[Rfam]
RNA sequence: ACUUGGUGCCGGGCCCCUCUGGCGAGAGUUACGGCGCUCUCGUGAUGUCGGUACCGCCAG
Numbered sequence: 001a002c003u004u005g006g007u008g009c010c011g012g013g014c015c016c017c018u019c020u021g022g023c024g025a026g027a028g029u030u031a032c033g034g035c036g037c038u039c040u041c042g043u044g045a046u047g048u049c050g051g052u053a054c055c056g057c058c059a060g
Base pairs, nucleotide, nucleotide: 006054007053008052009051010050011049012048022043023042024041025040026039027038028037029036
Overview:
Rfam assigns this 60-nucleotide sequence from Xaviernesmea oryzae to the family "terC RNA". By type it is a cis-regulatory element.